[Rfam]
RNA sequence: UAUAUUUGCGGCUUGAUACGAUAAAUGUAUCAUUGCAUAAAAAUUAUUAAAAUAAUAUUGGCAUG
Numbered sequence: 001u002a003u004a005u006u007u008g009c010g011g012c013u014u015g016a017u018a019c020g021a022u023a024a025a026u027g028u029a030u031c032a033u034u035g036c037a038u039a040a041a042a043a044u045u046a047u048u049a050a051a052a053u054a055a056u057a058u059u060g061g062c063a064u065g
Stems, first nucleotide, its partner, number of pairs: 014032006
Rfam assigns this 65-nucleotide RNA sequence from Kordia zhangzhouensis to the family "S15-Flavobacteria ribosomal protein leader". For this family Rfam cites "Discovery of 20 novel ribosomal leader candidates in bacteria and archaea" (Eckert and Weinberg, BMC Microbiol, 2020).